Shown here is an 81-nucleotide RNA sequence from Bombyx mori, a member of the family "mir-2807 microRNA precursor family".
RNA sequence: UUAACUCAAAUUUGUAUGGUGUUGCAGCGUUCGCCUACCUUUACCGGUAGGGGCGCUGUUCCAACUGCAUACAAAGAGUAA
Numbered sequence: 001u002u003a004a005c006u007c008a009a010a011u012u013u014g015u016a017u018g019g020u021g022u023u024g025c026a027g028c029g030u031u032c033g034c035c036u037a038c039c040u041u042u043a044c045c046g047g048u049a050g051g052g053g054c055g056c057u058g059u060u061c062c063a064a065c066u067g068c069a070u071a072c073a074a075a076g077a078g079u080a081a
Stems, first nucleotide, its partner, number of pairs: 011075006018068001021065004026060004034052003039047002

Lineage of the source: Eukaryota > Pancrustacea > Ditrysia > Obtectomera > Bombyx. The base pairs follow the family's consensus structure, which was predicted with RNAalifold. The literature on the family includes a 2010 paper in BMC Genomics by Liu et al., "MicroRNAs of Bombyx mori identified by Solexa sequencing". Its family is annotated with RISC complex and miRNA-mediated post-transcriptional gene silencing in the Gene Ontology.